Rfam assigns this 167-nucleotide sequence from Oscillospiraceae bacterium Marseille-Q3528 to the family "Clostridiales-1 RNA".
RNA sequence: UUAUAACAGUGUCGAAAGGCAUGAAUCCGCAUGAGCUUGCUCAUAAGCGGAUGAAAGGACUUGAGACACGCCCGCAGCAUGAGCAUGAAAGCGGAGCGCAUGCUUCGCGAUAUGCGAAUGCUGUCGGAAGAUUGCGGGAGUGCACAGCACGGAGCAAUCUGUUAUAA
Numbered sequence: 001u002u003a004u005a006a007c008a009g010u011g012u013c014g015a016a017a018g019g020c021a022u023g024a025a026u027c028c029g030c031a032u033g034a035g036c037u038u039g040c041u042c043a044u045a046a047g048c049g050g051a052u053g054a055a056a057g058g059a060c061u062u063g064a065g066a067c068a069c070g071c072c073c074g075c076a077g078c079a080u081g082a083g084c085a086u087g088a089a090a091g092c093g094g095a096g097c098g099c100a101u102g103c104u105u106c107g108c109g110a111u112a113u114g115c116g117a118a119u120g121c122u123g124u125c126g127g128a129a130g131a132u133u134g135c136g137g138g139a140g141u142g143c144a145c146a147g148c149a150c151g152g153a154g155c156a157a158u159c160u161g162u163u164a165u166a167a
Stems, first nucleotide, its partner, number of pairs: 001167007010068004016062003020058001022056001025052006031044005073126002075123006083115004091108007129160007140150004
NCBI's taxonomy places the organism under Bacteria, Bacillati, Bacillota, Clostridia, Oscillospiraceae.